Description:
Shown here is a 250-nucleotide RNA sequence from Pomacea canaliculata, a member of the family "RNase MRP". Rfam classes the family as a ribozyme. The organism belongs to Pomacea, within Eukaryota. The match comes from Rfam's covariance-model search (126 bits).
RNA sequence: GUGUCACUGGAAUACUUGCACUGUAGGCCACACACGGGAACGCCAUGUUUCUACAUGUCUACGGGAAAGUCCCCAGACCCAGGGCAGAGAGUGUCCAUCAUGCACUUGGUGCAGCCCGCUCCUCGCUUCUGUGACGUGCGGUGAAGCCUUCAAUGGCGGAGCAAGAAGUGAUCGGGUGAUCGUCAGAGCACAGUUAUGCAAGUGACACCUACGCCGGUGUUAACUCAAUGGGGCUCAAUCCCCAGUGACA
Numbered sequence: 001g002u003g004u005c006a007c008u009g010g011a012a013u014a015c016u017u018g019c020a021c022u023g024u025a026g027g028c029c030a031c032a033c034a035c036g037g038g039a040a041c042g043c044c045a046u047g048u049u050u051c052u053a054c055a056u057g058u059c060u061a062c063g064g065g066a067a068a069g070u071c072c073c074c075a076g077a078c079c080c081a082g083g084g085c086a087g088a089g090a091g092u093g094u095c096c097a098u099c100a101u102g103c104a105c106u107u108g109g110u111g112c113a114g115c116c117c118g119c120u121c122c123u124c125g126c127u128u129c130u131g132u133g134a135c136g137u138g139c140g141g142u143g144a145a146g147c148c149u150u151c152a153a154u155g156g157c158g159g160a161g162c163a164a165g166a167a168g169u170g171a172u173c174g175g176g177u178g179a180u181c182g183u184c185a186g187a188g189c190a191c192a193g194u195u196a197u198g199c200a201a202g203u204g205a206c207a208c209c210u211a212c213g214c215c216g217g218u219g220u221u222a223a224c225u226c227a228a229u230g231g232g233g234c235u236c237a238a239u240c241c242c243c244a245g246u247g248a249c250a
Base pairs, nucleotide, nucleotide: 002250003249004248005247006246007245008244009243010242014203015202016201017200018199019198022063023062024061025060026059027058028057037051038050039049040048041047042046068235069234071233072232073231074230083095084094085093086092096111097110098109099108100107113177115175120174123171124170125169126168127167128166137163138162139161146157147156148155205220206219207218208217209216